[Rfam]
RNA sequence: AGUUGUCUUCGGGGCGGGGUGCAAUUCCCCACCGGCGGUAAAGCGGCGUAAGCCGACGAGCCCGCGAGCGAAAGCUGAUUUGGUUUGAUUCCAAAGCCGACGGUAUAGUCCGGAUGGAAGAAGAUUGCG
Numbered sequence: 001a002g003u004u005g006u007c008u009u010c011g012g013g014g015c016g017g018g019g020u021g022c023a024a025u026u027c028c029c030c031a032c033c034g035g036c037g038g039u040a041a042a043g044c045g046g047c048g049u050a051a052g053c054c055g056a057c058g059a060g061c062c063c064g065c066g067a068g069c070g071a072a073a074g075c076u077g078a079u080u081u082g083g084u085u086u087g088a089u090u091c092c093a094a095a096g097c098c099g100a101c102g103g104u105a106u107a108g109u110c111c112g113g114a115u116g117g118a119a120g121a122a123g124a125u126u127g128c129g
Base pairs, nucleotide, nucleotide: 003127005125006124007123008122009121010120017029018028019027031109032108033099034098035065036064037063038062060097061096068075069074079095080094081093082092083091101112102111103110